Rfam assigns this 74-nucleotide sequence from Strigops habroptila to the family "Small nucleolar RNA SNORD59". The family is grouped with related families in Rfam's "SNORD59 clan". The family has 24 seed sequences and 1,355 matches in Rfam 15.1. Rfam classes the family as a C/D-box small nucleolar RNA. A search with the family's covariance model found it, with a score of 72 bits. Gene Ontology terms of the family: RNA processing and nucleolus. A reference for the family is Galardi et al. (2002), "Purified box C/D snoRNPs are able to reproduce site-specific 2'-O-methylation of target RNA in vitro", Mol Cell Biol.

[Rfam]
RNA sequence: CCUUCACUGAUGAGGAACCGUUUGACUUUCGUUCUUCUGAGCUGGCUGAAGCCACGUGUAUUGCUCUGAGGAGG
Numbered sequence: 001c002c003u004u005c006a007c008u009g010a011u012g013a014g015g016a017a018c019c020g021u022u023u024g025a026c027u028u029u030c031g032u033u034c035u036u037c038u039g040a041g042c043u044g045g046c047u048g049a050a051g052c053c054a055c056g057u058g059u060a061u062u063g064c065u066c067u068g069a070g071g072a073g074g
Stems, first nucleotide, its partner, number of pairs: 001074003005070001